[Rfam]
RNA sequence: GUCCCGCUGUACCGAAAAGUCACCGUAGGGUGGCCUGCCGGCCGAAGGGUCGGAUAGGAGGCGGGGCGCGC
Numbered sequence: 001g002u003c004c005c006g007c008u009g010u011a012c013c014g015a016a017a018a019g020u021c022a023c024c025g026u027a028g029g030g031u032g033g034c035c036u037g038c039c040g041g042c043c044g045a046a047g048g049g050u051c052g053g054a055u056a057g058g059a060g061g062c063g064g065g066g067c068g069c070g071c
Base pairs, nucleotide, nucleotide: 001067002066003065004064005063006062007061012058013057019034020033021032022031023030024029038053039052040051041050